[Rfam]
RNA sequence: GCCGCGGUGGUGUAGCUGGUAGCACUCCGGGCUGUGGACCCUGCGGCAGUGACCCGGCGGUCGUGGGUUCGAUUCCCACCCGCGGCC
Numbered sequence: 001g002c003c004g005c006g007g008u009g010g011u012g013u014a015g016c017u018g019g020u021a022g023c024a025c026u027c028c029g030g031g032c033u034g035u036g037g038a039c040c041c042u043g044c045g046g047c048a049g050u051g052a053c054c055c056g057g058c059g060g061u062c063g064u065g066g067g068u069u070c071g072a073u074u075c076c077c078a079c080c081c082g083c084g085g086c087c
Stems, first nucleotide, its partner, number of pairs: 001086007010025004027057005063079005
Shown here is an 87-nucleotide RNA from Candidatus Calditenuaceae archaeon HR02, a member of the family "tRNA".